[Rfam]
RNA sequence: GCCGAGAUGUGUAGCACUAGCUUGUGACUCGAGCGAGGGCAUUGUGGUGGCUGGACAAUGGUUCGAUCCAUUUAGACAGGUUCAGUGAGUUGCGCUUGCCGGCUUGCCCGGUCCAAGUUGGGAGUUGGGUCAUGCAGCCCAAGCGAAGGCUUGGACUUCAUGGCUCGUAGAGUGGAGGGCACAGCGUCAGGCUGGUUUCACAGAGCAGCGAUAACCUCCCGCUCUCGACAGUGCGAGGAAUACAAGCCGGUGCACUCUUGGGCCAUAUUGCCUGGUGACUCGAUUACAUUGAACAACCACUUUU
Numbered sequence: 001g002c003c004g005a006g007a008u009g010u011g012u013a014g015c016a017c018u019a020g021c022u023u024g025u026g027a028c029u030c031g032a033g034c035g036a037g038g039g040c041a042u043u044g045u046g047g048u049g050g051c052u053g054g055a056c057a058a059u060g061g062u063u064c065g066a067u068c069c070a071u072u073u074a075g076a077c078a079g080g081u082u083c084a085g086u087g088a089g090u091u092g093c094g095c096u097u098g099c100c101g102g103c104u105u106g107c108c109c110g111g112u113c114c115a116a117g118u119u120g121g122g123a124g125u126u127g128g129g130u131c132a133u134g135c136a137g138c139c140c141a142a143g144c145g146a147a148g149g150c151u152u153g154g155a156c157u158u159c160a161u162g163g164c165u166c167g168u169a170g171a172g173u174g175g176a177g178g179g180c181a182c183a184g185c186g187u188c189a190g191g192c193u194g195g196u197u198u199c200a201c202a203g204a205g206c207a208g209c210g211a212u213a214a215c216c217u218c219c220c221g222c223u224c225u226c227g228a229c230a231g232u233g234c235g236a237g238g239a240a241u242a243c244a245a246g247c248c249g250g251u252g253c254a255c256u257c258u259u260g261g262g263c264c265a266u267a268u269u270g271c272c273u274g275g276u277g278a279c280u281c282g283a284u285u286a287c288a289u290u291g292a293a294c295a296a297c298c299a300c301u302u303u304u
Stems, first nucleotide, its partner, number of pairs: 001040003004023003008019002028037003044303001046301005052295002056291005061285001063283004069277004075272001077270002079264007088256001091254004099250008108238002112235001114233002117229009127166008136157002139154006174219005183212001185210003192203003

A member of the RNA family "Plant signal recognition particle RNA" from Camellia sinensis, 304 nucleotides long. Rfam classes the family as a non-coding RNA gene. NCBI's taxonomy places the organism under Eukaryota, Tracheophyta, Mesangiospermae, Ericales, Camellia. Pairs were carried over by alignment from the consensus structure, which is taken from published work.